The record is a 100-nucleotide sequence from Erysipelothrix larvae, which matches "Purine riboswitch aptamer" in Rfam. The match comes from Rfam's covariance-model search (60 bits). About the family: Riboswitches are metabolite binding domains within certain messenger RNAs that serve as precision sensors for their corresponding targets.

RNA sequence: UUUUUUAAAAUCAUUAUAUUUUGUAUAAUCGUGAAAUGUUGGUUCACAAGUCUCUACCUUGCUCCGUUCGUGCAAGACUACAAAAUAGAAUACUUCUUUU
Numbered sequence: 001u002u003u004u005u006u007a008a009a010a011u012c013a014u015u016a017u018a019u020u021u022u023g024u025a026u027a028a029u030c031g032u033g034a035a036a037u038g039u040u041g042g043u044u045c046a047c048a049a050g051u052c053u054c055u056a057c058c059u060u061g062c063u064c065c066g067u068u069c070g071u072g073c074a075a076g077a078c079u080a081c082a083a084a085a086u087a088g089a090a091u092a093c094u095u096c097u098u099u100u
Stems, first nucleotide, its partner, number of pairs: 018086008029049001031047005058076005
Lineage of the source: Bacteria > Bacillati > Erysipelotrichia > Erysipelotrichaceae > Erysipelothrix. Rfam links the family to the GO term purine nucleobase biosynthetic process.